[Rfam]
RNA sequence: UUUCCCAGCUUUGUACCCAGGGUCUCUCUGCAGACAUUGCACCUGGAGCUGCCAAAACAAACCCCAAAUAAAUC
Numbered sequence: 001u002u003u004c005c006c007a008g009c010u011u012u013g014u015a016c017c018c019a020g021g022g023u024c025u026c027u028c029u030g031c032a033g034a035c036a037u038u039g040c041a042c043c044u045g046g047a048g049c050u051g052c053c054a055a056a057a058c059a060a061a062c063c064c065c066a067a068a069u070a071a072a073u074c
Base pairs, nucleotide, nucleotide: 006051007050008049009048017046018045019044020043022035023034024033025032
Rfam assigns this 74-nucleotide RNA sequence from Cettia cetti to the family "U1A polyadenylation inhibition element (PIE)". Rfam describes the family as follows. This family represents the U1A polyadenylation inhibition element (PIE). PIE is a regulatory RNA which is responsible for the regulation of the length of the polyA tail of the U1A pre-mRNA. The PIE is located in the U1A mRNA 3' UTR. PIE adopts a U-shaped structure, with binding sites for a single U1A protein at each bend and when complexed with the two proteins it blocks activity of poly(A) polymerase (PAP), and inhibits its activity. On this family, see Clerte and Hall, Biochemistry 2004: "Global and Local Dynamics of the U1A Polyadenylation Inhibition Element (PIE) RNA and PIE RNA-U1A Complexes". Rfam links the family to the GO term regulation of mRNA polyadenylation. It scores 51 bits against the family's covariance model.